[Rfam]
RNA sequence: GUAUAGCAGCAGUAGCUCAAGGCUGCUAUACGAUUGGACAUACCAAAUUCCAAUUGGUGUUAGGGACCACCUAGGUGAAGGCCGACGACAGGUAGCCAUUCCUGUUAGUAGGACGAACCGUUAUGGUGGACUGGUUGCUCAGGUGAGCAGGCUGCAAUGCGUAAGUGGUGAGUACACCACAGCCGUCAAAGGUGCCACUGGUAAGGAUCACCCACUGGCGAUGCCUUGUGGACGGGGGCGUGCCCAACGCAAUGUUAGCGGUGGCGGGGGCUGCCAUCGUGAAAGCUAGGUCUUGAUGGACCUUGUUGCCUGUACAGUCUGAUAGGAUGCCGGCGGAUGCCCUGUGACAGCCAGUAUAAAGAAUAUCCGUUGUGAUUGCAC
Number, nucleotide and partner (000 for none) at each position: 001g031002u030003a029004u028005a027006g026007c025008a024009g023010c000011a000012g000013u000014a000015g000016c000017u000018c000019a000020a000021g000022g000023c009024u008025g007026c006027u005028a004029u003030a002031c001032g000033a000034u000035u000036g000037g000038a000039c000040a000041u000042a000043c000044c000045a000046a000047a000048u000049u000050c000051c000052a000053a000054u000055u000056g000057g000058u000059g000060u000061u000062a000063g000064g000065g000066a000067c129068c128069a127070c126071c125072u000073a000074g000075g118076u117077g000078a000079a000080g000081g114082c112083c111084g000085a000086c000087g106088a105089c104090a103091g102092g101093u000094a000095g000096c000097c000098a000099u000100u000101c092102c091103u090104g089105u088106u087107a000108g000109u000110a000111g083112g082113a000114c081115g000116a000117a076118c075119c000120g000121u000122u000123a000124u000125g071126g070127u069128g068129g067130a355131c354132u353133g352134g351135u350136u349137g000138c346139u000140c344141a343142g342143g341144u316145g315146a000147g313148c312149a311150g310151g309152c308153u000154g255155c254156a253157a000158u251159g250160c249161g248162u247163a000164a000165g180166u179167g178168g177169u176170g175171a000172g000173u000174a000175c170176a169177c168178c167179a166180c165181a000182g000183c235184c234185g233186u232187c231188a000189a227190a226191g225192g224193u223194g219195c218196c217197a216198c000199u214200g213201g212202u000203a000204a000205g000206g000207a000208u000209c000210a000211c000212c201213c200214a199215c000216u197217g196218g195219c194220g000221a000222u000223g193224c192225c191226u190227u189228g000229u000230g000231g187232a186233c185234g184235g183236g245237g244238g243239c000240g000241u000242g000243c238244c237245c236246a000247a162248c161249g160250c159251a158252a000253u156254g155255u154256u000257a000258g280259c279260g278261g277262u276263g275264g274265c273266g272267g271268g000269g000270g000271c267272u266273g265274c264275c263276a262277u261278c260279g259280u258281g000282a000283a000284a000285g000286c000287u000288a303289g302290g301291u300292c299293u298294u000295g000296a000297u000298g293299g292300a291301c290302c289303u288304u000305g000306u000307u000308g152309c151310c150311u149312g148313u147314a000315c145316a144317g328318u327319c326320u325321g000322a000323u000324a000325g320326g319327a318328u317329g000330c000331c372332g371333g370334c369335g368336g367337a366338u365339g000340c000341c143342c142343u141344g140345u000346g138347a000348c000349a136350g135351c134352c133353a132354g131355u130356a000357u000358a000359a000360a000361g000362a000363a000364u000365a338366u337367c336368c335369g334370u333371u332372g331373u000374g000375a000376u000377u000378g000379c000380a000381c000